[Rfam]
RNA sequence: GUCAAAGCAGCGGCGUCAAAAGUGAAGGCUAACUUGCUAUCCGUAGAGGAAGCUUGCAGCCUGACGCCCCCACAUUCAGCCAAAUCCAAGUUUGGCUAUGGGGCAAAAGACGUCCGUUGCCAU
Numbered sequence: 001g002u003c004a005a006a007g008c009a010g011c012g013g014c015g016u017c018a019a020a021a022g023u024g025a026a027g028g029c030u031a032a033c034u035u036g037c038u039a040u041c042c043g044u045a046g047a048g049g050a051a052g053c054u055u056g057c058a059g060c061c062u063g064a065c066g067c068c069c070c071c072a073c074a075u076u077c078a079g080c081c082a083a084a085u086c087c088a089a090g091u092u093u094g095g096c097u098a099u100g101g102g103g104c105a106a107a108a109g110a111c112g113u114c115c116g117u118u119g120c121c122a123u
Stems, first nucleotide, its partner, number of pairs: 009117001012114006022065002025062001028057002035050001037048002068103004074097001076095002078092003